[Rfam]
About this RNA:
Rfam assigns this 53-nucleotide RNA from Musa balbisiana to the family "Plastid-atpF group II-D1 intron". Plastid atpF is a non-coding RNA (ncRNA) recognised in plastids. It has been reported in the intron group II-D1 region of ATP synthase (atpF) genes. The literature on the family includes a 2023 paper in Plant Commun by Richter et al., "Retrograde signaling in plants: A critical review focusing on the GUN pathway and beyond". The base pairs follow the family's consensus structure, which was predicted with LocARNA.
RNA sequence: UUUAUUUGAUUUGAUAUAGAACACUCAUAUCGAUAAAAGAAUUUUAACCAUUU
Number, nucleotide and partner (000 for none) at each position: 001u000002u000003u000004a000005u000006u000007u000008g000009a000010u000011u033012u032013g031014a030015u029016a028017u027018a000019g000020a000021a000022c000023a000024c000025u000026c000027a017028u016029a015030u014031c013032g012033a011034u000035a000036a000037a000038a000039g000040a000041a000042u000043u000044u000045u000046a000047a000048c000049c000050a000051u000052u000053u000